Rfam assigns this 114-nucleotide RNA from Bacillus sp. MRMR6 to the family "RNA Staph. aureus E (RoxS)".
The base pairs follow the family's consensus structure, which is taken from published work.
For this family Rfam cites "A search for small noncoding RNAs in Staphylococcus aureus reveals a conserved sequence motif for regulation" (Geissmann et al., Nucleic Acids Res, 2009).
RNA sequence: GUGAAGUUGAUCACUACAAACAUAUACCCCUUUGUUUGACCGUGAAAAAUUUCUCCCAUCCCCUUUGUUCGUAUAAAUAGAGAAAGGCCUUACAGCUUGCUGUAAGGCCUUUUC
Numbered sequence: 001g002u003g004a005a006g007u008u009g010a011u012c013a014c015u016a017c018a019a020a021c022a023u024a025u026a027c028c029c030c031u032u033u034g035u036u037u038g039a040c041c042g043u044g045a046a047a048a049a050u051u052u053c054u055c056c057c058a059u060c061c062c063c064u065u066u067g068u069u070c071g072u073a074u075a076a077a078u079a080g081a082g083a084a085a086g087g088c089c090u091u092a093c094a095g096c097u098u099g100c101u102g103u104a105a106g107g108c109c110u111u112u113u114c
Stems, first nucleotide, its partner, number of pairs: 003053006011045004017038006069080001084111011

About this RNA:
Rfam links the family to the GO term regulation of translational initiation. Lineage of the source: Bacteria > Bacillati > Caryophanales > Bacillaceae > Bacillus. The family's RNA type in Rfam is small RNA.